[Rfam]
The record is a 68-nucleotide RNA sequence from Methylococcus sp. EFPC2, which matches "int-alpA RNA" in Rfam. About the family: Acidobacteria (1 example), Planctomycetes (1 example), Proteobacteria. The match comes from Rfam's covariance-model search (64 bits). Rfam classes the family as a small RNA.

RNA sequence: UCCACGCCUAGUCCGGCCAGACGAAAAGCGGACACCUUCACCGCCUGGCGUGGUUCCUAUCUUGAAGG
Numbered sequence: 001u002c003c004a005c006g007c008c009u010a011g012u013c014c015g016g017c018c019a020g021a022c023g024a025a026a027a028g029c030g031g032a033c034a035c036c037u038u039c040a041c042c043g044c045c046u047g048g049c050g051u052g053g054u055u056c057c058u059a060u061c062u063u064g065a066a067g068g
Base pairs, nucleotide, nucleotide: 002053003052004051005050006049007048008047011022012021013020028044029043030042031041035068036067037066038065039064040063